Source information:
This 116-nucleotide sequence from Brassica carinata belongs to the Rfam family "MIR9563 microRNA precursor family". Pairs were carried over by alignment from the consensus structure, which was predicted with RNAalifold. Gene Ontology terms of the family: miRNA-mediated post-transcriptional gene silencing and RISC complex. A search with the family's covariance model found it, with a score of 94 bits.
[Rfam]
RNA sequence: GGAAAAUAAGAGACAGUCUCUUAACUUUUAACUAAAAAAGCUAAGAGACGUCUCUUAUUUAAGAAACGUCUCUUAGUUUUUUAAGUUAAAAAUUAAAAGACUGUCUCGUAUUUUCC
Numbered sequence: 001g002g003a004a005a006a007u008a009a010g011a012g013a014c015a016g017u018c019u020c021u022u023a024a025c026u027u028u029u030a031a032c033u034a035a036a037a038a039a040g041c042u043a044a045g046a047g048a049c050g051u052c053u054c055u056u057a058u059u060u061a062a063g064a065a066a067c068g069u070c071u072c073u074u075a076g077u078u079u080u081u082u083a084a085g086u087u088a089a090a091a092a093u094u095a096a097a098a099g100a101c102u103g104u105c106u107c108g109u110a111u112u113u114u115c116c
Stems, first nucleotide, its partner, number of pairs: 001116008010107010021096004026091008035082005041076007